[Rfam]
RNA sequence: GGACGCUUGACGGGGUGCCGGUGAUUCCGGCUGAGAUGGCGCAGGGAGCCCAAGGGUGACCUCAGCGCCGAUCCCGUGGAACCUGAUCCGGGUGAGCAGGGCCGCUGGCCCCGCAUGAACCGGCGUAGGGAAUCAGGCGAAGGGGUUUG
Numbered sequence: 001g002g003a004c005g006c007u008u009g010a011c012g013g014g015g016u017g018c019c020g021g022u023g024a025u026u027c028c029g030g031c032u033g034a035g036a037u038g039g040c041g042c043a044g045g046g047a048g049c050c051c052a053a054g055g056g057u058g059a060c061c062u063c064a065g066c067g068c069c070g071a072u073c074c075c076g077u078g079g080a081a082c083c084u085g086a087u088c089c090g091g092g093u094g095a096g097c098a099g100g101g102c103c104g105c106u107g108g109c110c111c112c113g114c115a116u117g118a119a120c121c122g123g124c125g126u127a128g129g130g131a132a133u134c135a136g137g138c139g140a141a142g143g144g145g146u147u148u149g
Stems, first nucleotide, its partner, number of pairs: 006137005011076004016070001017031005038069005082129004088123004
The record is a 149-nucleotide RNA from Halomonas chromatireducens, which matches "TPP riboswitch aptamer (THI element)" in Rfam. The base pairs follow the family's consensus structure, which is taken from published work. NCBI's taxonomy places the organism under Bacteria, Pseudomonadati, Pseudomonadota, Gammaproteobacteria, Halomonas. The literature on the family includes a 2002 paper in J Biol Chem by Rodionov et al., "Comparative genomics of thiamin biosynthesis in procaryotes. New genes and regulatory mechanisms".